[Rfam]
A member of the RNA family "FMN riboswitch aptamer (RFN element)" from Jeotgalibaca porci, 128 nucleotides long. Taxonomically the source falls in Jeotgalibaca (Bacteria, Bacillati, Bacillota, Lactobacillales). The family's consensus secondary structure is taken from published work. The match comes from Rfam's covariance-model search (116 bits).

Nucleotides: 128
Base pairs, nucleotide, nucleotide: 005124006123007122008121009120010119017029018028019027031108032107033098034097035048036047037046038045043096044095052073053072078094079093080092081091082090100111101110102109
Number, partner (000 for none) and nucleotide at each position: 001000a002000a003000a004000c005124g006123u007122c008121u009120u010119c011000a012000g013000g014000g015000c016000a017029g018028g019027g020000u021000g022000u023000a024000a025000u026000u027019c028018c029017c030000g031108a032107c033098c034097g035048g036047u037046g038045g039000u040000a041000a042000a043096g044095u045038c046037c047036a048035c049000g050000a051000c052073c053072u054000c055000a056000u057000a058000u059000u060000u061000u062000u063000c064000g065000a066000a067000a068000u069000a070000u071000g072053g073052g074000c075000u076000g077000a078094g079093c080092u081091g082090g083000u084000g085000u086000a087000a088000u089000u090082c091081c092080a093079g094078u095044a096043c097034c098033g099000a100111c101110a102109g103000u104000a105000a106000a107032g108031u109102c110101u111100g112000g113000a114000u115000g116000g117000a118000a119010g120009a121008a122007g123006a124005u125000u126000a127000g128000g